[Rfam]
RNA: Plastid-psbA-1 3UTR RNA
RNA sequence: GUUGAGGCUCCAUCUAUAAAUGGAUAAGAUUUGGGUCUUAAUGUAUACGAGUUUUUGAAAGUAAGGGAAUAAUAUAAAUCUUCUUAAUACAAGAAGAAAUUGAUAUUGUUCC
Numbered sequence: 001g002u003u004g005a006g007g008c009u010c011c012a013u014c015u016a017u018a019a020a021u022g023g024a025u026a027a028g029a030u031u032u033g034g035g036u037c038u039u040a041a042u043g044u045a046u047a048c049g050a051g052u053u054u055u056u057g058a059a060a061g062u063a064a065g066g067g068a069a070u071a072a073u074a075u076a077a078a079u080c081u082u083c084u085u086a087a088u089a090c091a092a093g094a095a096g097a098a099a100u101u102g103a104u105a106u107u108g109u110u111c112c
Stems, first nucleotide, its partner, number of pairs: 009024005065112001067111009078101001081098005